RNA sequence: UAGUCCGAAAGGAUGCGUGCGGAGGGCUUGAAGGCAAACCCCGGAACAGGCGGCUGAAACCGUGUUGGCUGACGAGAUCGGAUAACUCUGCCAAAGAAGAGAACAUCCAAUACCACCGUUGGAUCUCGGAAGUUAAGAGGACUGGAUCCGGGGGAAAGUCGGUUGA
Numbered sequence: 001u002a003g004u005c006c007g008a009a010a011g012g013a014u015g016c017g018u019g020c021g022g023a024g025g026g027c028u029u030g031a032a033g034g035c036a037a038a039c040c041c042c043g044g045a046a047c048a049g050g051c052g053g054c055u056g057a058a059a060c061c062g063u064g065u066u067g068g069c070u071g072a073c074g075a076g077a078u079c080g081g082a083u084a085a086c087u088c089u090g091c092c093a094a095a096g097a098a099g100a101g102a103a104c105a106u107c108c109a110a111u112a113c114c115a116c117c118g119u120u121g122g123a124u125c126u127c128g129g130a131a132g133u134u135a136a137g138a139g140g141a142c143u144g145g146a147u148c149c150g151g152g153g154g155a156a157a158g159u160c161g162g163u164u165g166a
Stems, first nucleotide, its partner, number of pairs: 003014004028166004034159002039153006047144003060140002063137001068133003073128006080108004086101004